[Rfam]
Rfam assigns this 92-nucleotide RNA from Roseburia sp. CAG:197 to the family "c-di-GMP-I riboswitch aptamer".
Lineage of the source: Bacteria > Bacillati > Clostridia > Lachnospiraceae > Roseburia.
The family's consensus secondary structure is taken from published work.
A search with the family's covariance model found it, with a score of 48 bits.
Rfam links the family to the GO term cyclic-di-GMP binding.
RNA sequence: CGUAUAAAAGGGCACACUUAUGGAAACGUAAGGUUGCAAAGCUAGAGUCUAACACGAAGUAACAUUUAUGUAAUGACAUAUCGGCUGCAACA
Numbered sequence: 001c002g003u004a005u006a007a008a009a010g011g012g013c014a015c016a017c018u019u020a021u022g023g024a025a026a027c028g029u030a031a032g033g034u035u036g037c038a039a040a041g042c043u044a045g046a047g048u049c050u051a052a053c054a055c056g057a058a059g060u061a062a063c064a065u066u067u068a069u070g071u072a073a074u075g076a077c078a079u080a081u082c083g084g085c086u087g088c089a090a091c092a
Stems, first nucleotide, its partner, number of pairs: 012037002017032006040086004045082002047077003054071003